A member of the RNA family "mir-2686 microRNA precursor family" from Capitella teleta, 66 nucleotides long. Lineage of the source: Eukaryota > Metazoa > Polychaeta > Sedentaria > Capitella.
RNA sequence: UGAGUACCUAUAUUGCGAAUCAUCUAUCCUUUCAAAUCGGAAGAUGUUCUCAAUGUAGGCUUCUUA
Numbered sequence: 001u002g003a004g005u006a007c008c009u010a011u012a013u014u015g016c017g018a019a020u021c022a023u024c025u026a027u028c029c030u031u032u033c034a035a036a037u038c039g040g041a042a043g044a045u046g047u048u049c050u051c052a053a054u055g056u057a058g059g060c061u062u063c064u065u066a
Base pairs, nucleotide, nucleotide: 002065003064004063007059008058009057010056011055012054013053014052015051017049018048019047021046022045023044024043025042027041028040029039